[Rfam]
RNA sequence: AAGUGAAUGAUGAUAUACUCAUAUUCCCCUUCAAGACAUUGUAGAUGAUGUCAACUGAGUUUUCUAACACU
Numbered sequence: 001a002a003g004u005g006a007a008u009g010a011u012g013a014u015a016u017a018c019u020c021a022u023a024u025u026c027c028c029c030u031u032c033a034a035g036a037c038a039u040u041g042u043a044g045a046u047g048a049u050g051u052c053a054a055c056u057g058a059g060u061u062u063u064c065u066a067a068c069a070c071u
Stems, first nucleotide, its partner, number of pairs: 002071004
A member of the RNA family "Small nucleolar RNA snoR60" from Taxus chinensis, 71 nucleotides long. Rfam 15.1 lists 1,133 matches to the family in 227 species. The base pairs follow the family's consensus structure, which was predicted with PFOLD. On this family, see Barneche et al., J Biol Chem 2000: "Fibrillarin genes encode both a conserved nucleolar protein and a novel small nucleolar RNA involved in ribosomal RNA methylation in Arabidopsis thaliana". By type it is a C/D-box small nucleolar RNA. A search with the family's covariance model found it, with a score of 52 bits. Its Rfam clan is "SNORD101 clan".